[Rfam]
RNA sequence: GGAGCGGCCCGGGGCCGGUGCCCCGAACGGCCUUCAAAGCCGUUGGCGGCGCCUCGACCGCGCCGGGAAGGUUCGACUCCUUCGCCGCUCC
Numbered sequence: 001g002g003a004g005c006g007g008c009c010c011g012g013g014g015c016c017g018g019u020g021c022c023c024c025g026a027a028c029g030g031c032c033u034u035c036a037a038a039g040c041c042g043u044u045g046g047c048g049g050c051g052c053c054u055c056g057a058c059c060g061c062g063c064c065g066g067g068a069a070g071g072u073u074c075g076a077c078u079c080c081u082u083c084g085c086c087g088c089u090c091c
Stems, first nucleotide, its partner, number of pairs: 001091008010025006026044006047065005068082004

The family of this 91-nucleotide sequence from Baekduia soli is "Selenocysteine transfer RNA".
It scores 71 bits against the family's covariance model.
The source organism's lineage runs through Bacteria, Thermoleophilia, Solirubrobacterales, Baekduiaceae and Baekduia.